About this RNA: tRNA: a 116-nucleotide RNA sequence from Aspergillus leporis. The base pairs follow the family's consensus structure, which is taken from published work. Lineage of the source: Eukaryota > Dikarya > saccharomyceta > Eurotiales > Aspergillus subgen. Circumdati. It is annotated as a transfer RNA. A search with the family's covariance model found it, with a score of 48 bits.
RNA sequence: GGCAAGAUGGCCGAGCGGUCUAAGGCGCUCGACUCAAGUUGAUUAUCAGCUUAGACAUAGAUAACUUUGUCUUUCGAGUCUCGAAAGAGGCAGGGGUUCGAAUCCCCUUCUUGUCA
Numbered sequence: 001g002g003c004a005a006g007a008u009g010g011c012c013g014a015g016c017g018g019u020c021u022a023a024g025g026c027g028c029u030c031g032a033c034u035c036a037a038g039u040u041g042a043u044u045a046u047c048a049g050c051u052u053a054g055a056c057a058u059a060g061a062u063a064a065c066u067u068u069g070u071c072u073u074u075c076g077a078g079u080c081u082c083g084a085a086a087g088a089g090g091c092a093g094g095g096g097u098u099c100g101a102a103u104c105c106c107c108u109u110c111u112u113g114u115c116a
Stems, first nucleotide, its partner, number of pairs: 001115007010026003028078005092108005